[Rfam]
Nucleotides: 075
Stems, first nucleotide, its partner, number of pairs: 002016005020035001022033002025030001047072005
Number, partner (000 for none) and nucleotide at each position: 001000a002016u003015g004014u005013g006012c007000u008000a009000c010000u011000c012006g013005u014004a015003c016002a017000c018000u019000c020035c021000g022033g023032u024000u025030c026000c027000g028000c029000u030025g031000c032023g033022c034000g035020g036000g037000c038000a039000a040000u041000g042000c043000c044000a045000g046000c047072u048071g049070a050069c051068g052000g053000c054000u055000g056000g057000u058000c059000g060000c061000u062000c063000u064000g065000u066000g067000g068051u069050g070049u071048c072047g073000a074000c075000c